Rfam assigns this 54-nucleotide sequence from Salmo trutta to the family "UnaL2 LINE 3' element". From the family's description: The eel long interspersed element (LINE) UnaL2 and its partner short interspersed element (SINE) share a conserved 3' tail containing a stem-loop that is critical for their retrotransposition. Presumably, the first step of retrotransposition is the recognition of their 3' tails by UnaL2-encoded reverse transcriptase. The solution structure of a 17-nucleotide RNA derived from the 3' tail of UnaL2 was determined by NMR.
RNA sequence: GUCAGAGCAGAGGGUAAGUCGCUCUGGAUAAGAGCGUCUGCUAAAUGACUUAAA
Numbered sequence: 001g002u003c004a005g006a007g008c009a010g011a012g013g014g015u016a017a018g019u020c021g022c023u024c025u026g027g028a029u030a031a032g033a034g035c036g037u038c039u040g041c042u043a044a045a046u047g048a049c050u051u052a053a054a
Stems, first nucleotide, its partner, number of pairs: 014041003020036006